[Rfam]
RNA: Group I catalytic intron
Nucleotides: 310
Base pairs, nucleotide, nucleotide: 005032006031007030008029009028010027011026012025013024038048060253061252062251063250065248066247070161071160072159073158074157075156081152082151083150085148162186163185169179170178190290192289193288194287195286196285255276256275257274258273298310299309300308
Number, partner (000 for none) and nucleotide at each position: 001000g002000c003000u004000a005032g006031c007030g008029g009028a010027u011026u012025a013024a014000u015000g016000u017000u018000g019000a020000u021000g022000c023000c024013u025012u026011a027010g028009u029008c030007c031006g032005c033000a034000u035000c036000g037000u038048u039000c040000a041000g042000a043000a044000a045000u046000g047000a048038a049000u050000g051000a052000u053000u054000a055000g056000a057000a058000a059000a060253u061252c062251g063250g064000g065248u066247g067000a068000a069000u070161u071160g072159c073158u074157g075156g076000a077000a078000a079000a080000u081152u082151c083150u084000u085148a086000g087000a088000g089000c090000c091000g092000a093000u094000c095000a096000a097000g098000c099000u100000a101000c102000a103000a104000c105000g106000u107000g108000a109000c110000u111000g112000g113000u114000a115000a116000c117000g118000g119000u120000g121000a122000g123000c124000g125000u126000g127000a128000a129000a130000g131000c132000u133000u134000g135000a136000a137000a138000a139000u140000u141000g142000a143000u144000c145000g146000g147000a148085u149000u150083g151082g152081a153000u154000g155000a156075u157074c158073a159072g160071c161070a162186g163185c164000c165000a166000a167000g168000c169179u170178c171000c172000u173000a174000a175000a176000c177000a178170g179169g180000a181000g182000a183000a184000g185163g186162u187000u188000c189000a190290a191000c192289g193288a194287c195286u196285a197000u198000c199000g200000a201000a202000a203000g204000c205000u206000g207000c208000c209000a210000g211000u212000c213000g214000g215000c216000a217000g218000u219000a220000a221000g222000u223000a224000g225000a226000g227000u228000a229000g230000g231000g232000g233000a234000g235000a236000u237000a238000u239000c240000c241000c242000c243000g244000a245000a246000g247066u248065g249000c250063c251062c252061g253060g254000c255276c256275c257274c258273u259000a260000c261000c262000a263000g264000g265000u266000a267000a268000u269000g270000c271000u272000g273258a274257g275256g276255g277000u278000g279000a280000u281000g282000a283000u284000a285196u286195a287194g288193u289192c290190u291000a292000g293000u294000c295000c296000g297000u298310u299309u300308g301000c302000g303000u304000u305000u306000a307000g308300c309299a310298g